[Rfam]
RNA sequence: CGCCUCGCUCCGGGGUGUCCUUGAUGGACUGAGAUGGUUGUGAGAGACCAAACCCGCGAACUUGAUCCGGUUCAUACCGGCGUAAGAAGAGCCAGCAGCACCAGC
Numbered sequence: 001c002g003c004c005u006c007g008c009u010c011c012g013g014g015g016u017g018u019c020c021u022u023g024a025u026g027g028a029c030u031g032a033g034a035u036g037g038u039u040g041u042g043a044g045a046g047a048c049c050a051a052a053c054c055c056g057c058g059a060a061c062u063u064g065a066u067c068c069g070g071u072u073c074a075u076a077c078c079g080g081c082g083u084a085a086g087a088a089g090a091g092c093c094a095g096c097a098g099c100a101c102c103a104g105c
Base pairs, nucleotide, nucleotide: 007092008091009090010089011056012055013054014053016050017029018028019027020026036049037048038047039046061086062085063084064083067080068079069078070077
Record summary:
This 105-nucleotide RNA sequence from Roseateles toxinivorans belongs to the Rfam family "TPP riboswitch aptamer (THI element)". The organism belongs to Roseateles, within Bacteria. The base pairs follow the family's consensus structure, which is taken from published work.